[Rfam]
About this RNA: The record is a 138-nucleotide RNA sequence from Streptosporangiaceae bacterium NEAU-GS5, which matches "c-di-AMP riboswitch aptamer (ydaO/yuaA leader)" in Rfam. About the family: This family represents a conserved RNA structure found upstream of the ydaO and yuaA genes in Bacillus subtilis and related genes in other bacteria. The organism belongs to Streptosporangiaceae, within Bacteria. Its family is annotated with regulation of gene expression and cyclic-di-AMP binding in the Gene Ontology.
RNA sequence: CCAGCCGGUGCGCUUAAUCCCGGACGCCCCGUCCGGGAGCCGGGGACCCAACCACUUCCUGGGGUGAACGCACGCAAGUGCCAGGGCAGCUCUCGCCCGAACCCGUCAGCUAACCCGGUCGGCAGAUGGAGAGGAGUG
Numbered sequence: 001c002c003a004g005c006c007g008g009u010g011c012g013c014u015u016a017a018u019c020c021c022g023g024a025c026g027c028c029c030c031g032u033c034c035g036g037g038a039g040c041c042g043g044g045g046a047c048c049c050a051a052c053c054a055c056u057u058c059c060u061g062g063g064g065u066g067a068a069c070g071c072a073c074g075c076a077a078g079u080g081c082c083a084g085g086g087c088a089g090c091u092c093u094c095g096c097c098c099g100a101a102c103c104c105g106u107c108a109g110c111u112a113a114c115c116c117g118g119u120c121g122g123c124a125g126a127u128g129g130a131g132a133g134g135a136g137u138g
Base pairs, nucleotide, nucleotide: 012123013122014121018038019037020036021035022034023033024032039119040118041117042116043115044114049061050060062104063103064102070081071080072079073078084098085097086096087095